[Rfam]
RNA sequence: AAAUAAUUUGUCGAAAAUCUACGUAUAAUAUUGGGAAUAUGGCCCAAAAGUUUCUACCGAGCUGCCGUAAAGAGCUUGACUACGCUGAUUCUGAAUGAUGGG
Number, nucleotide and partner (000 for none) at each position: 001a000002a000003a000004u000005a000006a000007u000008u000009u000010g000011u000012c000013g000014a000015a000016a000017a000018u088019c087020u000021a000022c084023g083024u082025a081026u000027a000028a000029u049030a000031u047032u046033g045034g044035g043036a000037a000038u000039a000040u000041g000042g000043c035044c034045c033046a032047a031048a000049a029050g000051u000052u000053u000054c000055u000056a000057c000058c078059g077060a076061g075062c074063u073064g000065c000066c000067g000068u000069a000070a000071a000072g000073a063074g062075c061076u060077u059078g058079a000080c000081u025082a024083c023084g022085c000086u000087g019088a018089u000090u000091c000092u000093g000094a000095a000096u000097g000098a000099u000100g000101g000102g000

Shown here is a 102-nucleotide sequence from Mesobacillus foraminis, a member of the family "Purine riboswitch aptamer".
It scores 81 bits against the family's covariance model.